[Rfam]
RNA sequence: CCCCCAAGGGGAAGCGAAGACCCUAUGGAGCUUUACUGCAGGCUGUCGCUGAGACGUGGUCGCUGAUGUGCAGUGUAGGUAGGAGCCGUUACCGAGGCCCAUGCGCUAGCAUGGCGCCCAGGCACCCAUGAAACACUACCCGUCAGUGACUGCGACUCUCACUCCGGGAGGAGGACACCGGUAGCCGGGCAGUUUGACUGGGGCGGUACGCGCUUGAAAAGAUAUCGAGCGCGCCCCAAGGCCACCUCAGGCGAGUCGGAAACUCGCCGGAGAGCGCAAGAGCAAAAGGUGGCUUGACAGUGUUCUUCCCAACGAGGAACGCUGACGCGAAAGCGUGGUCUAGCGAACUGAUGCGCCCGCUUGAUGCGGGCCAUGAAUGACAGAAAAGCUACCCUAGGGAUAACAGAGUCGUCACUCGCAAGAGCACAUAUCGACCGAGUGGCUUGCUACCUCGAUGUCGGUUCCCUCCAUCCUGCCCGUGCAGAAGCGGGCAAGGGUGAGGUUGUUCGCCUAUUAAAGGAGGUCGUGAGCUGGGUUUAGACCGUCGUGAGACAGGUCGGCUGCUAUCUAUUGGGGGUGUU
Numbered sequence: 001c002c003c004c005c006a007a008g009g010g011g012a013a014g015c016g017a018a019g020a021c022c023c024u025a026u027g028g029a030g031c032u033u034u035a036c037u038g039c040a041g042g043c044u045g046u047c048g049c050u051g052a053g054a055c056g057u058g059g060u061c062g063c064u065g066a067u068g069u070g071c072a073g074u075g076u077a078g079g080u081a082g083g084a085g086c087c088g089u090u091a092c093c094g095a096g097g098c099c100c101a102u103g104c105g106c107u108a109g110c111a112u113g114g115c116g117c118c119c120a121g122g123c124a125c126c127c128a129u130g131a132a133a134c135a136c137u138a139c140c141c142g143u144c145a146g147u148g149a150c151u152g153c154g155a156c157u158c159u160c161a162c163u164c165c166g167g168g169a170g171g172a173g174g175a176c177a178c179c180g181g182u183a184g185c186c187g188g189g190c191a192g193u194u195u196g197a198c199u200g201g202g203g204c205g206g207u208a209c210g211c212g213c214u215u216g217a218a219a220a221g222a223u224a225u226c227g228a229g230c231g232c233g234c235c236c237c238a239a240g241g242c243c244a245c246c247u248c249a250g251g252c253g254a255g256u257c258g259g260a261a262a263c264u265c266g267c268c269g270g271a272g273a274g275c276g277c278a279a280g281a282g283c284a285a286a287a288g289g290u291g292g293c294u295u296g297a298c299a300g301u302g303u304u305c306u307u308c309c310c311a312a313c314g315a316g317g318a319a320c321g322c323u324g325a326c327g328c329g330a331a332a333g334c335g336u337g338g339u340c341u342a343g344c345g346a347a348c349u350g351a352u353g354c355g356c357c358c359g360c361u362u363g364a365u366g367c368g369g370g371c372c373a374u375g376a377a378u379g380a381c382a383g384a385a386a387a388g389c390u391a392c393c394c395u396a397g398g399g400a401u402a403a404c405a406g407a408g409u410c411g412u413c414a415c416u417c418g419c420a421a422g423a424g425c426a427c428a429u430a431u432c433g434a435c436c437g438a439g440u441g442g443c444u445u446g447c448u449a450c451c452u453c454g455a456u457g458u459c460g461g462u463u464c465c466c467u468c469c470a471u472c473c474u475g476c477c478c479g480u481g482c483a484g485a486a487g488c489g490g491g492c493a494a495g496g497g498u499g500a501g502g503u504u505g506u507u508c509g510c511c512u513a514u515u516a517a518a519g520g521a522g523g524u525c526g527u528g529a530g531c532u533g534g535g536u537u538u539a540g541a542c543c544g545u546c547g548u549g550a551g552a553c554a555g556g557u558c559g560g561c562u563g564c565u566a567u568c569u570a571u572u573g574g575g576g577g578u579g580u581u
Stems, first nucleotide, its partner, number of pairs: 001577007010569003014564002022398004027394002029390005035193004042185007051158003055154014078140005085123003100113005162173004196209001197207003210232006235338002241293006247273002250268006274283002298324009326335001328333001349376001351374003355371005407448003411445001412442007422432002459534001460532004464526001465523005472497002476491005500512004540558004544553003
RNA: Archaeal large subunit ribosomal RNA, nucleotides 2081 to 2661
Organism: Halovenus carboxidivorans